[Rfam]
RNA sequence: GUGAGUUCGGCUCACACCCCCCGGAGCCGGACUCUUUCGGCAAGCCCCGCCGCCCCCCGGCGGGGCUUGUCCGUU
Numbered sequence: 001g002u003g004a005g006u007u008c009g010g011c012u013c014a015c016a017c018c019c020c021c022c023g024g025a026g027c028c029g030g031a032c033u034c035u036u037u038c039g040g041c042a043a044g045c046c047c048c049g050c051c052g053c054c055c056c057c058c059g060g061c062g063g064g065g066c067u068u069g070u071c072c073g074u075u
Stems, first nucleotide, its partner, number of pairs: 003034011039071013
Shown here is a 75-nucleotide sequence from Virgisporangium aliadipatigenens, a member of the family "6C RNA". The source organism's lineage runs through Bacteria, Actinomycetota, Micromonosporales, Micromonosporaceae and Virgisporangium. By type it is a cis-regulatory element. Its family is annotated with sporulation in the Gene Ontology.